Shown here is a 61-nucleotide RNA from Oleomonas cavernae, a member of the family "DUF3800-IX RNA". The family's consensus secondary structure is taken from published work. The source organism's lineage runs through Bacteria, Pseudomonadati, Acetobacterales, Acetobacteraceae and Oleomonas. A search with the family's covariance model found it, with a score of 38 bits. Actinobacteria, Firmicutes (1 example), Nitrospirae, Proteobacteria, Verrucomicrobia (1 example).

RNA sequence: CUGCCGAUCCGAAUUGUCGCCGGCUGGCGCGCUUUCUGGCGGUCGCCAGAUAGGACCGCAG
Number, nucleotide and partner (000 for none) at each position: 001c061002u060003g059004c058005c000006g056007a000008u055009c054010c053011g000012a000013a000014u000015u000016g032017u031018c029019g028020c027021c026022g000023g000024c000025u000026g021027g020028c019029g018030c000031g017032c016033u000034u000035u050036c049037u048038g047039g046040c000041g000042g000043u000044c000045g000046c039047c038048a037049g036050a035051u000052a000053g010054g009055a008056c006057c000058g004059c003060a002061g001